[Rfam]
RNA sequence: CAGUUCUUUUUUUUAAUUUGGUAGGUUUUCUGACUUUGGUCAGAAAGCCCAA
Number, nucleotide and partner (000 for none) at each position: 001c000002a000003g000004u000005u000006c000007u000008u000009u000010u000011u000012u000013u000014u000015a000016a000017u000018u000019u000020g000021g000022u000023a000024g049025g048026u047027u046028u045029u044030c043031u042032g041033a040034c039035u000036u000037u000038g000039g034040u033041c032042a031043g030044a029045a028046a027047g026048c025049c024050c000051a000052a000
The record is a 52-nucleotide RNA from Mus musculus, which matches "U7 small nuclear RNA" in Rfam.
The organism belongs to Mus, within Eukaryota.
A search with the family's covariance model found it, with a score of 35 bits.